The record is a 164-nucleotide RNA sequence from Eremothecium cymbalariae, which matches "Small nucleolar RNA snR8" in Rfam. It is annotated as an H/ACA-box small nucleolar RNA. It scores 147 bits against the family's covariance model.
RNA sequence: GUGAUACGAAAUAUAUAUGCCUUCUAUUCACUGUGCCAUCUUGUGUAGUAGAUGAUCAGAGGGGAAAAGAAGAGCUAGAUUGAUAUUCGCAAACGUCCUCAUACUGAAUAGGGUAAUUAACUUUUUUGGAGGCUCUAAUUGGUAACUGCGUGAGCGAUACAUUC
Numbered sequence: 001g002u003g004a005u006a007c008g009a010a011a012u013a014u015a016u017a018u019g020c021c022u023u024c025u026a027u028u029c030a031c032u033g034u035g036c037c038a039u040c041u042u043g044u045g046u047a048g049u050a051g052a053u054g055a056u057c058a059g060a061g062g063g064g065a066a067a068a069g070a071a072g073a074g075c076u077a078g079a080u081u082g083a084u085a086u087u088c089g090c091a092a093a094c095g096u097c098c099u100c101a102u103a104c105u106g107a108a109u110a111g112g113g114u115a116a117u118u119a120a121c122u123u124u125u126u127u128g129g130a131g132g133c134u135c136u137a138a139u140u141g142g143u144a145a146c147u148g149c150g151u152g153a154g155c156g157a158u159a160c161a162u163u164c
Stems, first nucleotide, its partner, number of pairs: 019075002022071002031061002034058002037054005087157004093151003104142003109137006
Background:
The literature on the family includes a 1988 paper in Mol Cell Biol by Parker et al., "Genetic analysis of small nuclear RNAs in Saccharomyces cerevisiae: viable sextuple mutant".